[Rfam]
RNA sequence: GAUUUAUAAAGAAGCGUGGAGAGACAGGCUCUGUGAAGCGCUAGCAACCUAACGACCGAGUAAAGGUGCUAAUUCCUGAUUCCGAAGGGUUCGGAAGAAUAUAAAUU
Numbered sequence: 001g002a003u004u005u006a007u008a009a010a011g012a013a014g015c016g017u018g019g020a021g022a023g024a025c026a027g028g029c030u031c032u033g034u035g036a037a038g039c040g041c042u043a044g045c046a047a048c049c050u051a052a053c054g055a056c057c058g059a060g061u062a063a064a065g066g067u068g069c070u071a072a073u074u075c076c077u078g079a080u081u082c083c084g085a086a087g088g089g090u091u092c093g094g095a096a097g098a099a100u101a102u103a104a105a106u107u
Base pairs, nucleotide, nucleotide: 001107002106003105004104005103006102007101008100013042014041015040016039017038021031022030023029025078026077027076028075043070044069045068046067048066049065050062051061074099080096081095082094083093084092085091

A member of the RNA family "SAM riboswitch aptamer (S box leader)" from Pontibacter rufus, 107 nucleotides long. A search with the family's covariance model found it, with a score of 78 bits. The source organism's lineage runs through Bacteria, Pseudomonadati, Bacteroidota, Cytophagia and Pontibacter.